[Rfam]
RNA sequence: UAGAUUGAAGCCAGUUAGCUAGGGUGUUUAGCUGUUAACUAAAGUUUCGUGGGGGUGGAGCCCACCAGUCUAG
Numbered sequence: 001u002a003g004a005u006u007g008a009a010g011c012c013a014g015u016u017a018g019c020u021a022g023g024g025u026g027u028u029u030a031g032c033u034g035u036u037a038a039c040u041a042a043a044g045u046u047u048c049g050u051g052g053g054g055g056u057g058g059a060g061c062c063c064a065c066c067a068g069u070c071u072a073g
Stems, first nucleotide, its partner, number of pairs: 001072007010025003027043005049065005
RNA: tRNA